[Rfam]
Background
Rfam assigns this 192-nucleotide sequence to the family "psaA RNA".
RNA sequence: CCUAUGCUUCCGCCAGCGGUCCCCUUUUUGGGGCCCCAGCUUCAGUGCAGCAAAGGGGUUUCGGCUCCCAAGCGGUCUGACGCCCUGUCACGGUUUCCCUGCGGAGCUGUGCCCGGGGCCCCGACGGAUUCCGGUCCGUCGCAGGGGUGGCCCUCCACCUCGAUACCCGUCCCUCGAGGAACGACUCGAUGA
Number, nucleotide and partner (000 for none) at each position: 001c000002c000003u000004a000005u000006g000007c000008u000009u000010c000011c000012g000013c000014c000015a000016g000017c000018g152019g151020u150021c147022c146023c145024c144025u143026u000027u141028u000029u000030g122031g121032g120033g119034c118035c117036c116037c000038a000039g083040c082041u000042u080043c079044a078045g077046u000047g000048c074049a000050g000051c072052a000053a000054a000055g069056g068057g067058g065059u064060u000061u000062c000063g000064g059065c058066u000067c057068c056069c055070a000071a000072g051073c000074g048075g000076u000077c045078u044079g043080a042081c000082g040083c039084c000085c115086u000087g113088u000089c111090a110091c109092g108093g107094u106095u105096u104097c103098c000099c000100u000101g000102c000103g097104g096105a095106g094107c093108u092109g091110u090111g089112c000113c087114c000115g085116g036117g035118g034119c033120c032121c031122c030123g140124a139125c138126g137127g136128a135129u134130u000131c000132c000133g000134g129135u128136c127137c126138g125139u124140c123141g027142c000143a025144g024145g023146g022147g021148u000149g000150g020151c019152c018153c000154u000155c000156c000157a000158c179159c178160u177161c176162g175163a174164u000165a000166c000167c000168c000169g000170u000171c000172c000173c000174u163175c162176g161177a160178g159179g158180a000181a000182c000183g000184a000185c000186u000187c000188g000189a000190u000191g000192a000
The family's consensus secondary structure is taken from published work. By type it is a cis-regulatory element. Rfam's curators put it in the seed alignment.